[Rfam]
Nucleotides: 049
Base pairs, nucleotide, nucleotide: 001048002047003046004045005044006043007042008041009040010039011038012037013036014035015034016033017032018031019030
Number, partner (000 for none) and nucleotide at each position: 001048u002047u003046g004045a005044g006043a007042c008041c009040c010039c011038g012037g013036u014035g015034a016033a017032u018031c019030a020000a021000a022000u023000a024000u025000u026000g027000u028000a029000g030019u031018g032017a033016u034015u035014c036013g037012c038011c039010g040009g041008g042007g043006u044005c045004u046003c047002a048001a049000c
A member of the RNA family "Plastid-ccsA-ndhD-2 3UTR RNA", 49 nucleotides long. For this family Rfam cites "Retrograde signaling in plants: A critical review focusing on the GUN pathway and beyond" (Richter et al., Plant Commun, 2023). Pairs were carried over by alignment from the consensus structure, which was predicted with LocARNA.